[Rfam]
RNA sequence: UAAAAACGAGGAUUGCAAAGGGCGGGACGCCCUUGCCGUCAAGGGGGGUGCUCAGUAAAAACGCGUAUGCGUUUUACGCCGAAGGGGGA
Numbered sequence: 001u002a003a004a005a006a007c008g009a010g011g012a013u014u015g016c017a018a019a020g021g022g023c024g025g026g027a028c029g030c031c032c033u034u035g036c037c038g039u040c041a042a043g044g045g046g047g048g049u050g051c052u053c054a055g056u057a058a059a060a061a062c063g064c065g066u067a068u069g070c071g072u073u074u075u076a077c078g079c080c081g082a083a084g085g086g087g088g089a
Stems, first nucleotide, its partner, number of pairs: 015036002018034006055077005

A member of the RNA family "Clostridiales-2 RNA" from Sedimentibacter saalensis, 89 nucleotides long. Pairs were carried over by alignment from the consensus structure, which is taken from published work. The match comes from Rfam's covariance-model search (59 bits).